A member of the RNA family "Mammalian CPEB3 ribozyme" from Alligator sinensis, 76 nucleotides long. The organism belongs to Alligator, within Eukaryota.
[Rfam]
RNA sequence: GGUAAAAAAUUUGAGGCCACAGCAGAAGUGCUCACAGAGCUGCCUGUCAGAUUCCGAUGAAUCUGCAAAUUCUACU
Dot-bracket structure: ..............[[[...((.((((((.........)).]]]...(((((((....)))))))....)))).))